[Rfam]
Nucleotides: 298
Base pairs, nucleotide, nucleotide: 001044002043003042004023005022006021007020008019009018010017028041029040030039047295048294049293050292051291052290053289058285059284060283061282062281066275067274068273069272070271071270072269077268078267079266080265081264082263083262084261086259087258088257089256092254093253094252095251097249101248102247103246104245105244106243107242108241109237110236112235113234114233115232116231118228119227120226121225122224123223124222125221126220127166128165129164130163132161133160134159136157138155139154140153141152142151143150144149168172175218176217177216178215179214186209187208188207193202194201195200
Number, partner (000 for none) and nucleotide at each position: 001044g002043c003042u004023g005022g006021g007020a008019g009018u010017g011000g012000u013000g014000g015000c016000g017010u018009g019008c020007u021006c022005c023004u024000g025000u026000a027000a028041u029040c030039c031000g032000g033000c034000u035000a036000c037000u038000c039030g040029g041028a042003g043002g044001c045000g046000u047295g048294g049293a050292u051291u052290u053289g054000u055000g056000g057000a058285u059284c060283u061282c062281u063000u064000g065000a066275g067274g068273g069272c070271g071270g072269g073000a074000g075000c076000c077268c078267u079266g080265c081264u082263c083262u084261g085000c086259g087258g088257c089256g090000g091000u092254c093253u094252g095251u096000g097249u098000c099000g100000a101248u102247c103246g104245g105244g106243u107242g108241u109237c110236c111000g112235c113234a114233c115232u116231a117000a118228g119227c120226c121225c122224g123223g124222c125221a126220u127166c128165a129164a130163u131000a132161u133160g134159g135000g136157g137000c138155c139154c140153c141152c142151g143150g144149a145000g146000g147000a148000g149144u150143c151142c152141g153140g154139g155138g156000u157136c158000g159134c160133c161132a162000g163130g164129u165128u166127g167000a168172c169000u170000a171000a172168g173000g174000a175218g176217g177216u178215g179214c180000g181000u182000a183000c184000c185000g186209g187208g188207c189000c190000a191000g192000g193202c194201g195200g196000g197000u198000g199000a200195c201194c202193g203000a204000g205000c206000a207188g208187c209186c210000a211000a212000a213000a214179g215178u216177a217176c218175c219000c220126g221125u222124g223123u224122c225121g226120g227119g228118c229000a230000g231116u232115a233114g234113u235112g236110g237109g238000a239000u240000c241108g242107c243106g244105c245104c246103u247102g248101a249097g250000a251095a252094c253093a254092g255000c256089c257088g258087u259086c260000a261084c262083a263082g264081a265080g266079c267078a268077g269072c270071c271070c272069g273068u274067c275066c276000a277000a278000u279000a280000c281062a282061g283060g284059g285058g286000g287000a288000c289053c290052a291051a292050a293049u294048u295047c296000u297000u298000u
Metazoan signal recognition particle RNA: a 298-nucleotide sequence from Amphibalanus amphitrite.
Rfam's curators write: The signal recognition particle (SRP) is a universally conserved ribonucleoprotein. It is involved in the co-translational targeting of proteins to membranes. The eukaryotic SRP consists of a 300-nucleotide 7S RNA and six proteins: SRPs 72, 68, 54, 19, 14, and 9.
It is annotated as a non-coding RNA gene.
Clan: SRP clan.
The match comes from Rfam's covariance-model search (265 bits).